[Rfam]
RNA sequence: AGAUAACUCAGAGUCCCCCGACCGGGGAUAUGAGUAACGGCUGGUUGGCCCAGCCCGGAGUCUUCCUGUUCGACCGCGAGAGCGGAUGGUUCACACCGAGAGAACAGGGAGACUGCAAACCGUAAUAUCCCAACGCUCGGGAAUCCCACCCCUUCAGGGGUGGGA
Numbered sequence: 001a002g003a004u005a006a007c008u009c010a011g012a013g014u015c016c017c018c019c020g021a022c023c024g025g026g027g028a029u030a031u032g033a034g035u036a037a038c039g040g041c042u043g044g045u046u047g048g049c050c051c052a053g054c055c056c057g058g059a060g061u062c063u064u065c066c067u068g069u070u071c072g073a074c075c076g077c078g079a080g081a082g083c084g085g086a087u088g089g090u091u092c093a094c095a096c097c098g099a100g101a102g103a104a105c106a107g108g109g110a111g112a113c114u115g116c117a118a119a120c121c122g123u124a125a126u127a128u129c130c131c132a133a134c135g136c137u138c139g140g141g142a143a144u145c146c147c148a149c150c151c152c153u154u155c156a157g158g159g160g161u162g163g164g165a
Stems, first nucleotide, its partner, number of pairs: 004037001007034004013029003016025002039055005059114005065108007084097002128142004133137001144165009

A member of the RNA family "Sense overlapping transcript RNA 0042 (sot)" from Halopiger xanaduensis, 165 nucleotides long.
It is associated with IS1341-type transposase (tnpB) genes, at the 3'-end in H. salinarum NRC-1. The tetraloop structural motif may be functional.
Pairs were carried over by alignment from the consensus structure, which was predicted with RNAfold.
On this family, see Gomes-Filho et al., RNA Biol 2015: "Sense overlapping transcripts in IS1341-type transposase genes are functional non-coding RNAs in archaea".